[Rfam]
mir-9193 microRNA precursor family: a 74-nucleotide RNA sequence from Cnephaeus nilssonii.

RNA sequence: UUCGGGGAGGGGGCAUCCCUCAGCAUGGAUUGCAAGAGGGCGCAGGCCAGGCUGAAGGACCCCACUGGUGCACA
Numbered sequence: 001u002u003c004g005g006g007g008a009g010g011g012g013g014c015a016u017c018c019c020u021c022a023g024c025a026u027g028g029a030u031u032g033c034a035a036g037a038g039g040g041c042g043c044a045g046g047c048c049a050g051g052c053u054g055a056a057g058g059a060c061c062c063c064a065c066u067g068g069u070g071c072a073c074a
Stems, first nucleotide, its partner, number of pairs: 004071001006069001009066002012063002016059003020055005027048002030045004
Description: Rfam links the family to the GO terms RISC complex and miRNA-mediated post-transcriptional gene silencing. The source organism's lineage runs through Eukaryota, Opisthokonta, Bilateria, Eutheria and Cnephaeus. The base pairs follow the family's consensus structure, which was predicted with RNAalifold.